Annotation:
This 66-nucleotide RNA from Varanus komodoensis belongs to the Rfam family "Small nucleolar RNA SNORD82". Rfam links the family to the GO terms RNA processing and nucleolus. About the family: snoRNA U82 or Z25 is found in both humans and mice. A search with the family's covariance model found it, with a score of 49 bits. By type it is a C/D-box small nucleolar RNA.
[Rfam]
RNA sequence: AGCACAGAUGAUGAGUACUGGGACUUAAUGCUGAGCUCGUGAUGUCUCCAGUAUGAGCUGAUGUGC
Numbered sequence: 001a002g003c004a005c006a007g008a009u010g011a012u013g014a015g016u017a018c019u020g021g022g023a024c025u026u027a028a029u030g031c032u033g034a035g036c037u038c039g040u041g042a043u044g045u046c047u048c049c050a051g052u053a054u055g056a057g058c059u060g061a062u063g064u065g066c
Stems, first nucleotide, its partner, number of pairs: 002066005